RNA sequence: AGUGAUGAUAGAGGCGCGGAACUCUAAUAGUAAACAUUCUUAGGUUGGAUAGAACCGGUGAGGAGUGUUGAAAGGGGAGGCCGCCGAAAUGGUUAGGAAAUCUAUUCUUUCUAACUGUUGGUUCUACAUUUAAGAAAUGUGGAAUUGUCAGAAUCAGCAAUGGUUCUGGAGGGCUAUCACACAU
Numbered sequence: 001a002g003u004g005a006u007g008a009u010a011g012a013g014g015c016g017c018g019g020a021a022c023u024c025u026a027a028u029a030g031u032a033a034a035c036a037u038u039c040u041u042a043g044g045u046u047g048g049a050u051a052g053a054a055c056c057g058g059u060g061a062g063g064a065g066u067g068u069u070g071a072a073a074g075g076g077g078a079g080g081c082c083g084c085c086g087a088a089a090u091g092g093u094u095a096g097g098a099a100a101u102c103u104a105u106u107c108u109u110u111c112u113a114a115c116u117g118u119u120g121g122u123u124c125u126a127c128a129u130u131u132a133a134g135a136a137a138u139g140u141g142g143a144a145u146u147g148u149c150a151g152a153a154u155c156a157g158c159a160a161u162g163g164u165u166c167u168g169g170a171g172g173g174c175u176a177u178c179a180c181a182c183a184u
Stems, first nucleotide, its partner, number of pairs: 006179006016084004022079004033069008088119012120146011148169007
RNA: Lysine riboswitch aptamer